The family of this 229-nucleotide RNA sequence from Phreatobacter sp. is "permuted transfer-messenger RNA". Pairs were carried over by alignment from the consensus structure, which is taken from published work. It is annotated as a non-coding RNA gene. Its family is annotated with RNA catabolic process in the Gene Ontology.
[Rfam]
Nucleotides: 229
Base pairs, nucleotide, nucleotide: 001148002147003146004145005144012138013137015135024127025126026125027124028123029122033049034048035047036046037045050109051108052107053106054105055104056103149164150163151162
Number, partner (000 for none) and nucleotide at each position: 001148g002147g003146c004145u005144c006000u007000a008000a009000a010000c011000c012138u013137u014000g015135a016000u017000c018000g019000a020000a021000a022000g023000u024127c025126g026125u027124g028123a029122a030000g031000a032000c033049g034048c035047c036046g037045g038000g039000g040000c041000a042000g043000u044000a045037c046036c047035g048034g049033c050109c051108g052107c053106c054105u055104c056103c057000a058000c059000c060000a061000a062000c063000a064000g065000c066000a067000c068000a069000u070000g071000u072000c073000a074000a075000a076000u077000c078000a079000u080000a081000g082000a083000a084000u085000u086000g087000c088000a089000c090000a091000u092000g093000u094000g095000c096000u097000g098000c099000u100000g101000a102000u103056g104055g105054g106053g107052g108051c109050g110000a111000a112000c113000c114000a115000g116000g117000a118000u119000c120000g121000a122029u123028u124027c125026a126025c127024g128000c129000c130000g131000g132000a133000a134000g135015u136000g137013a138012a139000a140000a141000g142000c143000u144005g145004a146003g147002c148001u149164c150163g151162g152000g153000u154000g155000u156000g157000c158000g159000c160000c161000g162151c163150c164149g165000c166000u167000a168000c169000g170000g171000g172000g173000c174000a175000a176000u177000g178000c179000a180000u181000a182000a183000a184000u185000g186000u187000c188000a189000a190000c191000g192000a193000c194000a195000a196000c197000c198000u199000c200000g201000u202000u203000g204000c205000u206000g207000c208000c209000g210000a211000c212000c213000u214000c215000g216000c217000c218000c219000u220000c221000g222000c223000g224000g225000c226000g227000u228000g229000a